[Rfam]
RNA sequence: GUCUAGUGUUUACAUCAGUCUUACUUUACCUGUGGUCCCUGGUGUGAUAACUGUGCCGACAGCAGAGGGAGCAUUAAACUCAUUGCCCACGGUAAAAUGUGGGGAGCGAAACCCAUGUUCCUAUAAUC
Numbered sequence: 001g002u003c004u005a006g007u008g009u010u011u012a013c014a015u016c017a018g019u020c021u022u023a024c025u026u027u028a029c030c031u032g033u034g035g036u037c038c039c040u041g042g043u044g045u046g047a048u049a050a051c052u053g054u055g056c057c058g059a060c061a062g063c064a065g066a067g068g069g070a071g072c073a074u075u076a077a078a079c080u081c082a083u084u085g086c087c088c089a090c091g092g093u094a095a096a097a098u099g100u101g102g103g104g105a106g107c108g109a110a111a112c113c114c115a116u117g118u119u120c121c122u123a124u125a126a127u128c
Base pairs, nucleotide, nucleotide: 005054008051009050012045013044014043015042023036024035025034068121070119071118072117073116074115080109081108083106084105088101089100090099

Small nucleolar RNA ACA64: a 128-nucleotide sequence from Bucco capensis. It is annotated as an H/ACA-box small nucleolar RNA. The family's consensus secondary structure was predicted with WAR. Taxonomically the source falls in Bucco (Eukaryota, Eumetazoa, Euteleostomi, Theropoda). For this family Rfam cites "A computational screen for mammalian pseudouridylation guide H/ACA RNAs" (Schattner et al., RNA, 2006). The match comes from Rfam's covariance-model search (46 bits).